Small nucleolar RNA SNORA64/SNORA10 family: a 132-nucleotide RNA from Loxodonta africana. Rfam 15.1 lists 703 matches to the family in 311 species. Rfam's curators write: This family belongs to the H/ACA class of small nucleolar RNAs (snoRNAs) which act as guides in the the modification of uridines to pseudouridines. This family includes the human snoRNAs U64 and ACA10 and mouse MBI-29. The source organism's lineage runs through Eukaryota, Gnathostomata, Amniota, Eutheria and Loxodonta. The family is grouped with related families in Rfam's "SNORA64 clan". A reference for the family is Narayanan et al. (1999), "Nucleolar localization signals of box H/ACA small nucleolar RNAs", EMBO J. Rfam links the family to the GO terms nucleolus and RNA processing.
RNA sequence: AGACUUCUAGCUUUGCGUAGUCAUACUUGCAUGAAUAUGCGUGACAUCCAUGACAGGGAAAAAUUAAGGAUGUCCUCGGUACCUCAGAUAGGCCUUCUCGUGGCAACUUUUUCCUUGAGGGGUGUGACAGGC
Numbered sequence: 001a002g003a004c005u006u007c008u009a010g011c012u013u014u015g016c017g018u019a020g021u022c023a024u025a026c027u028u029g030c031a032u033g034a035a036u037a038u039g040c041g042u043g044a045c046a047u048c049c050a051u052g053a054c055a056g057g058g059a060a061a062a063a064u065u066a067a068g069g070a071u072g073u074c075c076u077c078g079g080u081a082c083c084u085c086a087g088a089u090a091g092g093c094c095u096u097c098u099c100g101u102g103g104c105a106a107c108u109u110u111u112u113c114c115u116u117g118a119g120g121g122g123u124g125u126g127a128c129a130g131g132c
Base pairs, nucleotide, nucleotide: 002064005063006062008060011058012057013056014055015054020045021044022043023042024041026039073121074120075119076118078116079115086110087109088108092104093103094102